[Rfam]
RNA: pan motif
RNA sequence: CGGAUGGUAUUCGAAAAGAAACUAUACCGUAAUUGAUAAGAUGUUUUUUAAAUUAAGGGUAGAGUAGACUAAGUGACGAAGCUUGCAUCAUUUUUAUGAGUGGGACUUGUAU
Numbered sequence: 001c002g003g004a005u006g007g008u009a010u011u012c013g014a015a016a017a018g019a020a021a022c023u024a025u026a027c028c029g030u031a032a033u034u035g036a037u038a039a040g041a042u043g044u045u046u047u048u049u050a051a052a053u054u055a056a057g058g059g060u061a062g063a064g065u066a067g068a069c070u071a072a073g074u075g076a077c078g079a080a081g082c083u084u085g086c087a088u089c090a091u092u093u094u095u096a097u098g099a100g101u102g103g104g105a106c107u108u109g110u111a112u
Stems, first nucleotide, its partner, number of pairs: 001029003004025005010020002079108003082104005088099003